RNA: Antisense RNA which regulates isiA expression
RNA sequence: AAUAACCAAAGAUGGUUGCGGGGUCUAGAGUAGGAUUACUAAUCAGACGGACAUCCCCCAAGUGAGUGUCAUAAAUUCCCCCAAAAAACAUUGCUUUUAGAACGAGCAAAAAAGCACCAAAACCAAGAACAAUUAAGUGAUGUCCUAAGAUUAAACUCAACUUUUUGGAAUCGUUCCA
Numbered sequence: 001a002a003u004a005a006c007c008a009a010a011g012a013u014g015g016u017u018g019c020g021g022g023g024u025c026u027a028g029a030g031u032a033g034g035a036u037u038a039c040u041a042a043u044c045a046g047a048c049g050g051a052c053a054u055c056c057c058c059c060a061a062g063u064g065a066g067u068g069u070c071a072u073a074a075a076u077u078c079c080c081c082c083a084a085a086a087a088a089c090a091u092u093g094c095u096u097u098u099a100g101a102a103c104g105a106g107c108a109a110a111a112a113a114g115c116a117c118c119a120a121a122a123c124c125a126a127g128a129a130c131a132a133u134u135a136a137g138u139g140a141u142g143u144c145c146u147a148a149g150a151u152u153a154a155a156c157u158c159a160a161c162u163u164u165u166u167g168g169a170a171u172c173g174u175u176c177c178a
Base pairs, nucleotide, nucleotide: 136175137174138173139172140171141170145168146167147166148165